[Rfam]
RNA sequence: GUUGCUGUGACGAUAUUGGAACACGGGAGUGUUCUUUGGGCAGUGGACAGGAUCUAUUGGUCUUGCCGUGAGCCUUUCUAUUAACGACUUCUCCUUCCACCGAGCAUU
Numbered sequence: 001g002u003u004g005c006u007g008u009g010a011c012g013a014u015a016u017u018g019g020a021a022c023a024c025g026g027g028a029g030u031g032u033u034c035u036u037u038g039g040g041c042a043g044u045g046g047a048c049a050g051g052a053u054c055u056a057u058u059g060g061u062c063u064u065g066c067c068g069u070g071a072g073c074c075u076u077u078c079u080a081u082u083a084a085c086g087a088c089u090u091c092u093c094c095u096u097c098c099a100c101c102g103a104g105c106a107u108u
Stems, first nucleotide, its partner, number of pairs: 001108001003106003
Notes:
The record is a 108-nucleotide RNA sequence from Chenopodium quinoa, which matches "Small nucleolar RNA Z152/R70/R12/" in Rfam. The family has 9 seed sequences and 604 matches in Rfam 15.1. On this family, see Barneche et al., J Mol Biol 2001: "Identification of 66 box C/D snoRNAs in Arabidopsis thaliana: extensive gene duplications generated multiple isoforms predicting new ribosomal RNA 2'-O-methylation sites". Gene Ontology terms of the family: RNA processing and nucleolus. Lineage of the source: Eukaryota > Euphyllophyta > Magnoliopsida > Atripliceae > Chenopodium.